A member of the RNA family "mir-574 microRNA precursor family" from Myotis lucifugus, 81 nucleotides long.
The family is grouped with related families in Rfam's "mir-574 microRNA precursor clan".
NCBI's taxonomy places the organism under Eukaryota, Vertebrata, Tetrapoda, Laurasiatheria, Myotis.
The family's consensus secondary structure was predicted with RNAalifold.
On this family, see Nielsen et al., Anim Genet 2010: "MicroRNA identity and abundance in porcine skeletal muscles determined by deep sequencing".

RNA sequence: AGGCCUGGAGAGAGAGGCAGGGUCUAAUCCGUAGCCUCCAUAGCAGCUGUUGAUCAACACUUGCCUCUCUCUUUUUCUCCG
Numbered sequence: 001a002g003g004c005c006u007g008g009a010g011a012g013a014g015a016g017g018c019a020g021g022g023u024c025u026a027a028u029c030c031g032u033a034g035c036c037u038c039c040a041u042a043g044c045a046g047c048u049g050u051u052g053a054u055c056a057a058c059a060c061u062u063g064c065c066u067c068u069c070u071c072u073u074u075u076u077c078u079c080c081g
Stems, first nucleotide, its partner, number of pairs: 008073013025056001027054003032049004